[Rfam]
RNA sequence: GCCGGCUUGACCCUGACGGGUGUUGGGCGCAGACUUCAAAUCUGUGGGGCCCGGGAGGGCCAGUGGUUCGAUUCCACCUGGCCGGC
Numbered sequence: 001g002c003c004g005g006c007u008u009g010a011c012c013c014u015g016a017c018g019g020g021u022g023u024u025g026g027g028c029g030c031a032g033a034c035u036u037c038a039a040a041u042c043u044g045u046g047g048g049g050c051c052c053g054g055g056a057g058g059g060c061c062a063g064u065g066g067u068u069c070g071a072u073u074c075c076a077c078c079u080g081g082c083c084g085g086c
Stems, first nucleotide, its partner, number of pairs: 001086007009078001012027006028046006048061005063077004